[Rfam]
RNA sequence: ACACUUCGUCCUACUCCCCGCAAACCGAGACCUCUAGGGAGUCUAAACGCACGUCUCUAAUACCUACGCCUGAGGGUGGUGUAGGAAUAUUCUAUCCG
Numbered sequence: 001a002c003a004c005u006u007c008g009u010c011c012u013a014c015u016c017c018c019c020g021c022a023a024a025c026c027g028a029g030a031c032c033u034c035u036a037g038g039g040a041g042u043c044u045a046a047a048c049g050c051a052c053g054u055c056u057c058u059a060a061u062a063c064c065u066a067c068g069c070c071u072g073a074g075g076g077u078g079g080u081g082u083a084g085g086a087a088u089a090u091u092c093u094a095u096c097c098g
Stems, first nucleotide, its partner, number of pairs: 014041005020035001027057005063085007
A member of the RNA family "PhotoRC-II RNA", 98 nucleotides long. The family's consensus secondary structure is taken from published work.